[Rfam]
RNA: 6S / SsrS RNA
RNA sequence: UGAUACCUGGGAUGUGCGAAGUUCUUACCAAUUUUGAACCUACAUUAGACUAAAGGGAUUCCAAUAUUUUUAAGCGGAUGUCAUGCCUCCUUUUUAAGCGUGGAAGGCAGAAGUUUAAGUGAGGUUGCCCACCUAGCAUUGCUAGGCGUCAAUAAGUAAGAGACGGCAUCUUGGGGUCACA
Numbered sequence: 001u002g003a004u005a006c007c008u009g010g011g012a013u014g015u016g017c018g019a020a021g022u023u024c025u026u027a028c029c030a031a032u033u034u035u036g037a038a039c040c041u042a043c044a045u046u047a048g049a050c051u052a053a054a055g056g057g058a059u060u061c062c063a064a065u066a067u068u069u070u071u072a073a074g075c076g077g078a079u080g081u082c083a084u085g086c087c088u089c090c091u092u093u094u095u096a097a098g099c100g101u102g103g104a105a106g107g108c109a110g111a112a113g114u115u116u117a118a119g120u121g122a123g124g125u126u127g128c129c130c131a132c133c134u135a136g137c138a139u140u141g142c143u144a145g146g147c148g149u150c151a152a153u154a155a156g157u158a159a160g161a162g163a164c165g166g167c168a169u170c171u172u173g174g175g176g177u178c179a180c181a
Stems, first nucleotide, its partner, number of pairs: 006175010017165002032155002035151003039146002055130003061124002066120001069119007081107002086103002089100001